[Rfam]
RNA sequence: UUAGAAUAAUCACUUCAAGUCUAAUAUAAUUCGUGUAAUAAGGUCACGAAGUUUCUACCGGCCAACCGUAAAUUGCCUGACUAUAGACUUUUAUUUUGAAUGA
Numbered sequence: 001u002u003a004g005a006a007u008a009a010u011c012a013c014u015u016c017a018a019g020u021c022u023a024a025u026a027u028a029a030u031u032c033g034u035g036u037a038a039u040a041a042g043g044u045c046a047c048g049a050a051g052u053u054u055c056u057a058c059c060g061g062c063c064a065a066c067c068g069u070a071a072a073u074u075g076c077c078u079g080a081c082u083a084u085a086g087a088c089u090u091u092u093a094u095u096u097u098g099a100a101u102g103a
Base pairs, nucleotide, nucleotide: 018089019088020087021086022085024084025083026082030050031049032048033047034046035045059079060078061077063075064074065073